[Rfam]
RNA: TPP riboswitch aptamer (THI element)
Organism: Arthrobacter psychrolactophilus
RNA sequence: GAAGGCGACACGGGGUGCCAGGCCACAAGGGCCGGCUGAGACAAUACCCGUUGAACCUGCCCGGUUAGCACCGGCGAAGGGAUGUCCUGUUGACUACAU
Dot-bracket structure: ......((((((((.((((.(..........).))).......)..)))).....(((..((((......))))...)))..)))).............
Numbered sequence: 001g002a003a004g005g006c007g008a009c010a011c012g013g014g015g016u017g018c019c020a021g022g023c024c025a026c027a028a029g030g031g032c033c034g035g036c037u038g039a040g041a042c043a044a045u046a047c048c049c050g051u052u053g054a055a056c057c058u059g060c061c062c063g064g065u066u067a068g069c070a071c072c073g074g075c076g077a078a079g080g081g082a083u084g085u086c087c088u089g090u091u092g093a094c095u096a097c098a099u
Stems, first nucleotide, its partner, number of pairs: 007086004011050004016044001017036003021032001056080003061074004